Description
This 272-nucleotide RNA from Pseudomonas sp. C27(2019) belongs to the Rfam family "rne-II RNA".
[Rfam]
RNA sequence: AAAUGUGUUGGGUGGAGAUGCACAGUCGUAUUGUCCUGCGUAGCCAAGCGCUUUGAUUCAGACGUUUCAUCACGUCCGCGGCCAAUCACUGAUUCCUCCUCCUGAUACAAGUACGCUGCAUGUGCUUUUACAAUGCAGCAACUGGAGACGCAGUCGCGGUCUUGGCUUAUGACCAUGCACGCUAGACACGGUUAAAUUUUUAACUGCGCGACCCCAACACCGACCCGAUUUGUCGUGUGUGCCAAUGAUGUGAUCCGUGAACCCGGAAUAUA
Numbered sequence: 001a002a003a004u005g006u007g008u009u010g011g012g013u014g015g016a017g018a019u020g021c022a023c024a025g026u027c028g029u030a031u032u033g034u035c036c037u038g039c040g041u042a043g044c045c046a047a048g049c050g051c052u053u054u055g056a057u058u059c060a061g062a063c064g065u066u067u068c069a070u071c072a073c074g075u076c077c078g079c080g081g082c083c084a085a086u087c088a089c090u091g092a093u094u095c096c097u098c099c100u101c102c103u104g105a106u107a108c109a110a111g112u113a114c115g116c117u118g119c120a121u122g123u124g125c126u127u128u129u130a131c132a133a134u135g136c137a138g139c140a141a142c143u144g145g146a147g148a149c150g151c152a153g154u155c156g157c158g159g160u161c162u163u164g165g166c167u168u169a170u171g172a173c174c175a176u177g178c179a180c181g182c183u184a185g186a187c188a189c190g191g192u193u194a195a196a197u198u199u200u201u202a203a204c205u206g207c208g209c210g211a212c213c214c215c216a217a218c219a220c221c222g223a224c225c226c227g228a229u230u231u232g233u234c235g236u237g238u239g240u241g242c243c244a245a246u247g248a249u250g251u252g253a254u255c256c257g258u259g260a261a262c263c264c265g266g267a268a269u270a271u272a
Stems, first nucleotide, its partner, number of pairs: 014099004023091004030086004038079003042052003061076004100146003104142001149210003153187003156182003163175003191204005217240004221235004251270002254267004

It is annotated as a cis-regulatory element.